[Rfam]
RNA sequence: ACGUGCGCGGUGAUGAUACCAAAGUGUUUCGGACUAGAGUUUCUGAUCUGGGGUAGUAGCCAGUUUUGAAGAAACCACUCUUGGCUGUCUGAGCACACAA
Numbered sequence: 001a002c003g004u005g006c007g008c009g010g011u012g013a014u015g016a017u018a019c020c021a022a023a024g025u026g027u028u029u030c031g032g033a034c035u036a037g038a039g040u041u042u043c044u045g046a047u048c049u050g051g052g053g054u055a056g057u058a059g060c061c062a063g064u065u066u067u068g069a070a071g072a073a074a075c076c077a078c079u080c081u082u083g084g085c086u087g088u089c090u091g092a093g094c095a096c097a098c099a100a
Base pairs, nucleotide, nucleotide: 003098004097005096007094008093040071041070042069043068048063049062050061051060
RNA: Small nucleolar RNA Z157/R69/R10
Organism: Ceratodon purpureus